[Rfam]
RNA: Fusobacteriales-1 RNA
RNA sequence: AAACACCUUUCUCAAUGUAGGGGAUAACAUUGAAUUGAUACAAUUAUGUUUCUCAAUGUACAGCUAAACAUUGAUGAUACAAACACCUUUCUCAAUGUAGGGGAUAACAUUGA
Dot-bracket structure: .....[[[...(((((((]]].....))))))).............[[[...(((((((]]].....)))))))...........[[[...(((((((]]].....)))))))